[Rfam]
RNA sequence: UGGGCUGGCCGGGCGACCGCGUCGCCGUGCUCGCGAGAGUGCGGUGCCGAGGAAGGUCCGGGCUCCACAGGGCGAGGUGGUGGGUAACGCCCACCCGGGGAAACCCGCGGGACAGUGCCACAGAGAACAGACCGCCUCCCGCCUGACGGCUGUGCCUGACGACGGGAGGUAAGGGUGAAACGGUGGUGUAAGAGACCACCAGCGACCGGGGCGACCCGGCCGGCUCGGUAAACCCCACCUGGAGCAAGGUCAAGAAGUCCGGAGCCUUCGGGCCCCGGACGCGCGCACGACCGAGGGCGGCCCGCCCGAGUGCGCGGGUAGACCGCUGGAGGCGGCCGGCAACGGCCGUCGUAGAUGGAUGGUCGCCACGCUUCGGCGCACAGAACCCGGCCUACAGGCCAGCCCAUCCG
Dot-bracket structure: ((((((((((((((((((.((.(((((((((......))))))))).))....[[[.[[[[[((((...[[[[.((((((((((.....)))))(((((....)))).)((...(((((............((((((((((.....................))))))))..)).......((((((.......)))))).(((.(((((....))))).)).)..)))..)))))))))))))...((((...............................((((((......((((.]]]]))))..)))))).....))))......((((((((....))))))))..........)))))))..................]]]]]]]].).))))))))))....
Numbered sequence: 001u002g003g004g005c006u007g008g009c010c011g012g013g014c015g016a017c018c019g020c021g022u023c024g025c026c027g028u029g030c031u032c033g034c035g036a037g038a039g040u041g042c043g044g045u046g047c048c049g050a051g052g053a054a055g056g057u058c059c060g061g062g063c064u065c066c067a068c069a070g071g072g073c074g075a076g077g078u079g080g081u082g083g084g085u086a087a088c089g090c091c092c093a094c095c096c097g098g099g100g101a102a103a104c105c106c107g108c109g110g111g112a113c114a115g116u117g118c119c120a121c122a123g124a125g126a127a128c129a130g131a132c133c134g135c136c137u138c139c140c141g142c143c144u145g146a147c148g149g150c151u152g153u154g155c156c157u158g159a160c161g162a163c164g165g166g167a168g169g170u171a172a173g174g175g176u177g178a179a180a181c182g183g184u185g186g187u188g189u190a191a192g193a194g195a196c197c198a199c200c201a202g203c204g205a206c207c208g209g210g211g212c213g214a215c216c217c218g219g220c221c222g223g224c225u226c227g228g229u230a231a232a233c234c235c236c237a238c239c240u241g242g243a244g245c246a247a248g249g250u251c252a253a254g255a256a257g258u259c260c261g262g263a264g265c266c267u268u269c270g271g272g273c274c275c276c277g278g279a280c281g282c283g284c285g286c287a288c289g290a291c292c293g294a295g296g297g298c299g300g301c302c303c304g305c306c307c308g309a310g311u312g313c314g315c316g317g318g319u320a321g322a323c324c325g326c327u328g329g330a331g332g333c334g335g336c337c338g339g340c341a342a343c344g345g346c347c348g349u350c351g352u353a354g355a356u357g358g359a360u361g362g363u364c365g366c367c368a369c370g371c372u373u374c375g376g377c378g379c380a381c382a383g384a385a386c387c388c389g390g391c392c393u394a395c396a397g398g399c400c401a402g403c404c405c406a407u408c409c410g
Stems, first nucleotide, its partner, number of pairs: 001406010011395001012367007020049002023046009054393003058390005063244004070303004075240005080094005095109001096107004110235002115233002117229003132174002134170008182200006202224001203222002206219005248324004283315006295307004331350008
Rfam assigns this 410-nucleotide sequence from Nocardioides soli to the family "Bacterial RNase P class A". By type it is a ribozyme.